[Rfam]
RNA sequence: AAAUGAAAAGGCAAACCUAUUGAAAAAUAGGGACGCAAAGCCAUAGGGCCUUUCAGCUUUUGCUGGGUGGUAGCCUGGCCGCCAAUU
Numbered sequence: 001a002a003a004u005g006a007a008a009a010g011g012c013a014a015a016c017c018u019a020u021u022g023a024a025a026a027a028u029a030g031g032g033a034c035g036c037a038a039a040g041c042c043a044u045a046g047g048g049c050c051u052u053u054c055a056g057c058u059u060u061u062g063c064u065g066g067g068u069g070g071u072a073g074c075c076u077g078g079c080c081g082c083c084a085a086u087u
Stems, first nucleotide, its partner, number of pairs: 001087001011036002016031006034073001040079003045076003048071003
RNA: c-di-GMP-I-GGC riboswitch aptamer
Organism: Alkaliphilus pronyensis